[Rfam]
RNA: SAM riboswitch aptamer (S box leader)
RNA sequence: UUCUUAUCCAGAGAGGUGGAGGGGCAGGCCCUAAGAAACCUCGGCAACAGGUUAGAAAGAUAACACUGUGCCAAAUCCUGCGGGACAGCAUAAACUGAACCCGAAAGAUAAGAA
Dot-bracket structure: ((((((((....(((((...(((.[[[[)))......)))))((((.(((.(.........).)..))))))...(]]]]((((...............))))..)))))))))
Numbered sequence: 001u002u003c004u005u006a007u008c009c010a011g012a013g014a015g016g017u018g019g020a021g022g023g024g025c026a027g028g029c030c031c032u033a034a035g036a037a038a039c040c041u042c043g044g045c046a047a048c049a050g051g052u053u054a055g056a057a058a059g060a061u062a063a064c065a066c067u068g069u070g071c072c073a074a075a076u077c078c079u080g081c082g083g084g085a086c087a088g089c090a091u092a093a094a095c096u097g098a099a100c101c102c103g104a105a106a107g108a109u110a111a112g113a114a
Stems, first nucleotide, its partner, number of pairs: 001114008013042005021031003025080004043072004048068002050064001052062001076106001081103004